RNA sequence: UGGAUAGCUCCGUGUUGUCGUCCGACCCCCGACCCGAUGACAACGCGGGGCAUCCC
Numbered sequence: 001u002g003g004a005u006a007g008c009u010c011c012g013u014g015u016u017g018u019c020g021u022c023c024g025a026c027c028c029c030c031g032a033c034c035c036g037a038u039g040a041c042a043a044c045g046c047g048g049g050g051c052a053u054c055c056c
Stems, first nucleotide, its partner, number of pairs: 002055004007051016
Dot-bracket structure: .((((.((((((((((((((((.............)))))))))))))))))))).
RNA: F6 TB sRNA
Organism: Mycobacterium botniense